[Rfam]
RNA sequence: GAAUGCCAUGAGGUAUCUGAUGCUCAGUCUAAUCGAUGGCUGUGCUUCUCGUUAGAGUGGCAGAUAAGGAGGCGAACAGGUCUUGCGACACUGGUUGCUCUUCUUUCCAUGAGCUUCCUGUUACUUUUACCCUGCUUACAUCU
Numbered sequence: 001g002a003a004u005g006c007c008a009u010g011a012g013g014u015a016u017c018u019g020a021u022g023c024u025c026a027g028u029c030u031a032a033u034c035g036a037u038g039g040c041u042g043u044g045c046u047u048c049u050c051g052u053u054a055g056a057g058u059g060g061c062a063g064a065u066a067a068g069g070a071g072g073c074g075a076a077c078a079g080g081u082c083u084u085g086c087g088a089c090a091c092u093g094g095u096u097g098c099u100c101u102u103c104u105u106u107c108c109a110u111g112a113g114c115u116u117c118c119u120g121u122u123a124c125u126u127u128u129a130c131c132c133u134g135c136u137u138a139c140a141u142c143u
Stems, first nucleotide, its partner, number of pairs: 004062006019048002022045002025042005031037001075136001077134003090121002093118002097114003
The record is a 143-nucleotide sequence from Phoenix dactylifera, which matches "Small nucleolar RNA F1/F2/snoR5a" in Rfam. Rfam 15.1 lists 325 matches to the family in 97 species. The base pairs follow the family's consensus structure, which was predicted with PFOLD. Rfam's curators write: This family contains F1, F2 and snoR5a sequences, all of which are members of the the H/ACA class of snoRNA that guide the sites of modification of uridines to pseudouridines. Its family is annotated with nucleolus and RNA processing in the Gene Ontology. The source organism's lineage runs through Eukaryota, Viridiplantae, Magnoliopsida, Arecales and Phoenix.